[Rfam]
Source information
Shown here is a 105-nucleotide RNA from Lupinus angustifolius, a member of the family "Small nucleolar RNA Z279/snoR105/snoR108". Pairs were carried over by alignment from the consensus structure, which was predicted with PFOLD. It is annotated as a C/D-box small nucleolar RNA. Rfam links the family to the GO terms RNA processing and nucleolus. From the family's description: This family includes the plant snoRNAs known as Z279, snoR105 and snoR108.
RNA sequence: GGGAUAUGAUGAGUGGUUGAAUCUCGCAAUUAAUAAUGCGAGUUGGGUGUCUGCCCCAGCCUGGUUACGACAAUUGGGCGCUCAAUCUUUUUCCAAUCUGAUCCC
Numbered sequence: 001g002g003g004a005u006a007u008g009a010u011g012a013g014u015g016g017u018u019g020a021a022u023c024u025c026g027c028a029a030u031u032a033a034u035a036a037u038g039c040g041a042g043u044u045g046g047g048u049g050u051c052u053g054c055c056c057c058a059g060c061c062u063g064g065u066u067a068c069g070a071c072a073a074u075u076g077g078g079c080g081c082u083c084a085a086u087c088u089u090u091u092u093c094c095a096a097u098c099u100g101a102u103c104c105c
Stems, first nucleotide, its partner, number of pairs: 001105004014096001016094001023042005044084008062076004